RNA sequence: AUCGUUAGAGGUGGUAAAUUUCGUUGCAACCACGCACCCUAUGGGUUAAAAGAGAUGCAAGAGAUGUGACGCUUGCCUAACGGU
Numbered sequence: 001a002u003c004g005u006u007a008g009a010g011g012u013g014g015u016a017a018a019u020u021u022c023g024u025u026g027c028a029a030c031c032a033c034g035c036a037c038c039c040u041a042u043g044g045g046u047u048a049a050a051a052g053a054g055a056u057g058c059a060a061g062a063g064a065u066g067u068g069a070c071g072c073u074u075g076c077c078u079a080a081c082g083g084u
Stems, first nucleotide, its partner, number of pairs: 001084008011033005023070005035052001036046004057076005
Record summary: Shown here is an 84-nucleotide RNA, a member of the family "skipping-rope RNA". It is annotated as a small RNA. Pairs were carried over by alignment from the consensus structure, which is taken from published work.